[Rfam]
RNA sequence: CCGUGCUAGACGGGGAGGUAGCGGUGCCCUGUACCUGCAAUCCGCUAUAGCAGGGUCGAAUUCCCGGGCUGAGGCCUGGCUCGGUGAAGGUCUGGCCCAAAUAAGUGGUGUUGAAGGCUGGGUCCUAUGCGACGCAAACCCAUGAAUCCCGUCAGAUCCGGAAGGAAGCAGCGGUAAGUGGGAAUUUGCGGGUGCCAUAGGGUCACCUGGCCGGAGCUAACUGUUUGGGUAACGCUUGACCGAGUGGGUCGAAGUCGGGUGCACGG
Numbered sequence: 001c002c003g004u005g006c007u008a009g010a011c012g013g014g015g016a017g018g019u020a021g022c023g024g025u026g027c028c029c030u031g032u033a034c035c036u037g038c039a040a041u042c043c044g045c046u047a048u049a050g051c052a053g054g055g056u057c058g059a060a061u062u063c064c065c066g067g068g069c070u071g072a073g074g075c076c077u078g079g080c081u082c083g084g085u086g087a088a089g090g091u092c093u094g095g096c097c098c099a100a101a102u103a104a105g106u107g108g109u110g111u112u113g114a115a116g117g118c119u120g121g122g123u124c125c126u127a128u129g130c131g132a133c134g135c136a137a138a139c140c141c142a143u144g145a146a147u148c149c150c151g152u153c154a155g156a157u158c159c160g161g162a163a164g165g166a167a168g169c170a171g172c173g174g175u176a177a178g179u180g181g182g183a184a185u186u187u188g189c190g191g192g193u194g195c196c197a198u199a200g201g202g203u204c205a206c207c208u209g210g211c212c213g214g215a216g217c218u219a220a221c222u223g224u225u226u227g228g229g230u231a232a233c234g235c236u237u238g239a240c241c242g243a244g245u246g247g248g249u250c251g252a253a254g255u256c257g258g259g260u261g262c263a264c265g266g
Stems, first nucleotide, its partner, number of pairs: 001266006009057003012030004017025001019023001034054005063259003067256004073250005080244006087237003093231002097228006105221002107218003116212008124201006130192001133190005139182005149174004157166003

Source information:
Bacterial large signal recognition particle RNA: a 266-nucleotide RNA sequence from Natranaerobius thermophilus. The signal recognition particle (SRP) is a universally conserved ribonucleoprotein involved in the co-translational targeting of proteins to membranes. By type it is a non-coding RNA gene. Its Rfam clan is "SRP clan". Its family is annotated with SRP-dependent cotranslational protein targeting to membrane, signal sequence recognition and signal recognition particle, plasma membrane targeting in the Gene Ontology.